RNA sequence: AUCGAUACUCUGGAAAGCGCACGUCCUGCGGGACGGGCCACCGAAGGUGUAAGCCGGUCCCCUGGCAACGCGGGCCGGUCAAAGCUCUCAGGUUCCGUGACAGAGGGGGUAUG
Numbered sequence: 001a002u003c004g005a006u007a008c009u010c011u012g013g014a015a016a017g018c019g020c021a022c023g024u025c026c027u028g029c030g031g032g033a034c035g036g037g038c039c040a041c042c043g044a045a046g047g048u049g050u051a052a053g054c055c056g057g058u059c060c061c062c063u064g065g066c067a068a069c070g071c072g073g074g075c076c077g078g079u080c081a082a083a084g085c086u087c088u089c090a091g092g093u094u095c096c097g098u099g100a101c102a103g104a105g106g107g108g109g110u111a112u113g
Stems, first nucleotide, its partner, number of pairs: 006107001008105005019038002022035001040093003043089002047087001049085001053080001
Source information: Rfam assigns this 113-nucleotide RNA sequence from Sphingomonas ginsenosidivorax to the family "Glycine riboswitch aptamer". Its family is annotated with glycine biosynthetic process in the Gene Ontology. It scores 40 bits against the family's covariance model. This family represents the bacterial glycine riboswitch.